Plastid-rps12 3UTR RNA: a 105-nucleotide RNA. Pairs were carried over by alignment from the consensus structure, which was predicted with LocARNA. By type it is a cis-regulatory element. It is one of the family's seed sequences. Rfam's curators write: Plastid rpl20 is a non-coding RNA (ncRNA) recognised in plastids. It was found in the three prime untranslated region (3UTR) of rps12 gene, its 3UTR location sugest a role in transcript maduration.

[Rfam]
RNA sequence: GGUUUCCUUUGGUAAAAAAAAUCCAAUCAUUUCCAGUUUUAAUUUAAGACGAUAAAGAAUUCCCCAUUGGUAGCAAAUGGUAUCCAUUAAGCAGGGAAAUCUUAU
Numbered sequence: 001g002g003u004u005u006c007c008u009u010u011g012g013u014a015a016a017a018a019a020a021a022u023c024c025a026a027u028c029a030u031u032u033c034c035a036g037u038u039u040u041a042a043u044u045u046a047a048g049a050c051g052a053u054a055a056a057g058a059a060u061u062c063c064c065c066a067u068u069g070g071u072a073g074c075a076a077a078u079g080g081u082a083u084c085c086a087u088u089a090a091g092c093a094g095g096g097a098a099a100u101c102u103u104a105u
Stems, first nucleotide, its partner, number of pairs: 009026004062096003066087002069084004074080001